[Rfam]
RNA sequence: UUGCAUGUCAGAUUCCCCACCUCCUUCUGUCCCAUAGGGAGCGUGGGUAACAGGAAGACAUGCUAGAGUCAAACUGUUGUGGAGCGCACAGGGCCAGCAGUUUCCCAGAGCAGACUGGCUGGUAGUAUCAUGCUCCAACACUA
Numbered sequence: 001u002u003g004c005a006u007g008u009c010a011g012a013u014u015c016c017c018c019a020c021c022u023c024c025u026u027c028u029g030u031c032c033c034a035u036a037g038g039g040a041g042c043g044u045g046g047g048u049a050a051c052a053g054g055a056a057g058a059c060a061u062g063c064u065a066g067a068g069u070c071a072a073a074c075u076g077u078u079g080u081g082g083a084g085c086g087c088a089c090a091g092g093g094c095c096a097g098c099a100g101u102u103u104c105c106c107a108g109a110g111c112a113g114a115c116u117g118g119c120u121g122g123u124a125g126u127a128u129c130a131u132g133c134u135c136c137a138a139c140a141c142u143a
Stems, first nucleotide, its partner, number of pairs: 003063006016045001018043001020041001022040003081136004093123002097119001098117006
RNA: Small nucleolar RNA U109